[Rfam]
RNA: Small nucleolar RNA snoR74
RNA sequence: AAAAAAGCAAGGCUCUAUUGUUUUUCAGAAUAGAGCUUCCGUAAAGUUCAGGAAAAUUGAUUCCAUCGUUUUUGGGUGAACCUCUGUUUUUUUUAGUGGCUGAAGGUUCAGUUAAUGAUGAAACAUGC
Numbered sequence: 001a002a003a004a005a006a007g008c009a010a011g012g013c014u015c016u017a018u019u020g021u022u023u024u025u026c027a028g029a030a031u032a033g034a035g036c037u038u039c040c041g042u043a044a045a046g047u048u049c050a051g052g053a054a055a056a057u058u059g060a061u062u063c064c065a066u067c068g069u070u071u072u073u074g075g076g077u078g079a080a081c082c083u084c085u086g087u088u089u090u091u092u093u094u095a096g097u098g099g100c101u102g103a104a105g106g107u108u109c110a111g112u113u114a115a116u117g118a119u120g121a122a123a124c125a126u127g128c
Stems, first nucleotide, its partner, number of pairs: 005048002011037002014034004064120007077110007